[Rfam]
RNA sequence: UAGUAUCGGUGAAGAUGCCGGUUACCCGCUACGGGACGAAAAGACCCCGUGAACCUUUACUAUAGCUUCGCAUUGGUAUUGGAUAAUUAAUGUGUAGGAUAGGUCGGAGACAUUGAAGCAGGCACGCUAGUGUUUGUGGAGUCGCCCUUGAAAUACGACCCUUUGAUUAUCUGGUACCUAACCCUAACGGGAACAUUGCGUGGUGGGUAGUUUGACUGGGGUGGUCGCCUCCAAAAGAGUAACGGAGGCUUCUAAAGGUUCCCUCAGAACGGUCGGCAAUCGUUCGAAGAGUGUAAUGGCAUAAGGGAGCUUGACUGUGAGACAUACAAGUCGAUCAGGUACGAAAGUAGAGCAUAGUGAUCCGGUGGUUCCGCAUGGAAGGGCCAUCGCUCAAAGGAUAAAAGGUACUCCGGGGAUAACAGGCUGAUCCCUCCCAAGAGCUCACAUCGACGGAGUGGUUUGGCACCUCGAUGUCGGCUCGUCACAUCCUGGGGCUGGAGAAGGUCCCAAGGGUUGGGCUGUUCGCCCAUUAAAGUGGCACGCGAGCUGGGUUCAGAACGUCGUGAGACAGUUCGGUCUCUAUCUGUAGUGGGCGUU
Numbered sequence: 001u002a003g004u005a006u007c008g009g010u011g012a013a014g015a016u017g018c019c020g021g022u023u024a025c026c027c028g029c030u031a032c033g034g035g036a037c038g039a040a041a042a043g044a045c046c047c048c049g050u051g052a053a054c055c056u057u058u059a060c061u062a063u064a065g066c067u068u069c070g071c072a073u074u075g076g077u078a079u080u081g082g083a084u085a086a087u088u089a090a091u092g093u094g095u096a097g098g099a100u101a102g103g104u105c106g107g108a109g110a111c112a113u114u115g116a117a118g119c120a121g122g123c124a125c126g127c128u129a130g131u132g133u134u135u136g137u138g139g140a141g142u143c144g145c146c147c148u149u150g151a152a153a154u155a156c157g158a159c160c161c162u163u164u165g166a167u168u169a170u171c172u173g174g175u176a177c178c179u180a181a182c183c184c185u186a187a188c189g190g191g192a193a194c195a196u197u198g199c200g201u202g203g204u205g206g207g208u209a210g211u212u213u214g215a216c217u218g219g220g221g222u223g224g225u226c227g228c229c230u231c232c233a234a235a236a237g238a239g240u241a242a243c244g245g246a247g248g249c250u251u252c253u254a255a256a257g258g259u260u261c262c263c264u265c266a267g268a269a270c271g272g273u274c275g276g277c278a279a280u281c282g283u284u285c286g287a288a289g290a291g292u293g294u295a296a297u298g299g300c301a302u303a304a305g306g307g308a309g310c311u312u313g314a315c316u317g318u319g320a321g322a323c324a325u326a327c328a329a330g331u332c333g334a335u336c337a338g339g340u341a342c343g344a345a346a347g348u349a350g351a352g353c354a355u356a357g358u359g360a361u362c363c364g365g366u367g368g369u370u371c372c373g374c375a376u377g378g379a380a381g382g383g384c385c386a387u388c389g390c391u392c393a394a395a396g397g398a399u400a401a402a403a404g405g406u407a408c409u410c411c412g413g414g415g416a417u418a419a420c421a422g423g424c425u426g427a428u429c430c431c432u433c434c435c436a437a438g439a440g441c442u443c444a445c446a447u448c449g450a451c452g453g454a455g456u457g458g459u460u461u462g463g464c465a466c467c468u469c470g471a472u473g474u475c476g477g478c479u480c481g482u483c484a485c486a487u488c489c490u491g492g493g494g495c496u497g498g499a500g501a502a503g504g505u506c507c508c509a510a511g512g513g514u515u516g517g518g519c520u521g522u523u524c525g526c527c528c529a530u531u532a533a534a535g536u537g538g539c540a541c542g543c544g545a546g547c548u549g550g551g552u553u554c555a556g557a558a559c560g561u562c563g564u565g566a567g568a569c570a571g572u573u574c575g576g577u578c579u580c581u582a583u584c585u586g587u588a589g590u591g592g593g594c595g596u597u
Base pairs, nucleotide, nucleotide: 005022006021007020008019009018025593026592027591028590029589030588031587032586034585035584036583038580039579046414047413048412049411051410052409053406054405055404056403057402059211060210061209062208066203067202069200070199071198072197075178076177077176078175079174080173081172082171083170084169085168086167087166088165089164090163092161102160103159104158105157106156109143110142111141118137119136120135121134122133123132124131125130182191183190184189214226215225216224217223227249228248229247230246231245232244250395252352253351258310259309260308261307262306263305264290265289267285268284269283270282271281272280291300292299315338316337317336321332322331323330340349341348342347363389364388365387366386367385368384369383371382372381423464424463425462427461428458429457431455432454433453434452438448439447475550476548477547478546479545480542481539482538483537484536485535488513489512491508492507493506494505495504496503515529516528517527518526519525556574557573558572559571560569561568562567
A member of the RNA family "Bacterial large subunit ribosomal RNA" from an uncultured Flavobacteriia bacterium, 597 nucleotides of a longer RNA. The sequence is in the family's curated seed alignment.